A member of the RNA family "Y RNA" from Erinaceus europaeus, 114 nucleotides long. Y RNAs are components of the Ro ribonucleoprotein particle (Ro RNP), in association with Ro60 and La proteins. The Y RNAs and Ro60 and La proteins are well conserved, but the function of the Ro RNP is not known. In humans the RNA component can be one of four small RNAs -- hY1, hY3, hY4 and hY5. These small RNAs are predicted to fold into a conserved secondary structure containing three stem structures. The sequence is in the family's curated seed alignment. Rfam classes the family as a non-coding RNA gene.
RNA sequence: GGCUGGUCCGAAGGUAGUGAGUUAUCACAAUUGGUUCUACAGUCAGUUACAGCUCGAACUCCUCCUUGUACUCCUUGUUCUACCCUCCUCACUGCUGCACUUGACUGGUCUUUU
Numbered sequence: 001g002g003c004u005g006g007u008c009c010g011a012a013g014g015u016a017g018u019g020a021g022u023u024a025u026c027a028c029a030a031u032u033g034g035u036u037c038u039a040c041a042g043u044c045a046g047u048u049a050c051a052g053c054u055c056g057a058a059c060u061c062c063u064c065c066u067u068g069u070a071c072u073c074c075u076u077g078u079u080c081u082a083c084c085c086u087c088c089u090c091a092c093u094g095c096u097g098c099a100c101u102u103g104a105c106u107g108g109u110c111u112u113u114u
Stems, first nucleotide, its partner, number of pairs: 001110008010102002014098002016093006041076002045072002